[Rfam]
RNA sequence: UCUGGGGUGGACUAGAAUCUGAAAGAAGUCGACAGCAAGCCUCCACCGCUAAGAGCACGAACUUCAUACAAGGCUAAAUGUAUAUGAAUGAGAGCAAAAGAGGUUAAAGUACAUACUGCCGAAGGAUGCAUCGAAUAAGAUGAAGAGGAAGAGCGUGUACUUACC
Numbered sequence: 001u002c003u004g005g006g007g008u009g010g011a012c013u014a015g016a017a018u019c020u021g022a023a024a025g026a027a028g029u030c031g032a033c034a035g036c037a038a039g040c041c042u043c044c045a046c047c048g049c050u051a052a053g054a055g056c057a058c059g060a061a062c063u064u065c066a067u068a069c070a071a072g073g074c075u076a077a078a079u080g081u082a083u084a085u086g087a088a089u090g091a092g093a094g095c096a097a098a099a100g101a102g103g104u105u106a107a108a109g110u111a112c113a114u115a116c117u118g119c120c121g122a123a124g125g126a127u128g129c130a131u132c133g134a135a136u137a138a139g140a141u142g143a144a145g146a147g148g149a150a151g152a153g154c155g156u157g158u159a160c161u162u163a164c165c
Stems, first nucleotide, its partner, number of pairs: 001016005028165001031162002035158002041151002044148001049147002062145006073136001075134001078131006086112001088110002092105002
The family of this 165-nucleotide RNA from Oceanobacillus sp. J11TS1 is "Group II catalytic intron D1-D4-3". Rfam's curators write: Group II introns are found in rRNA, tRNA and mRNA of organelles in fungi, plants and protists, and also in mRNA in bacteria. The base pairs follow the family's consensus structure.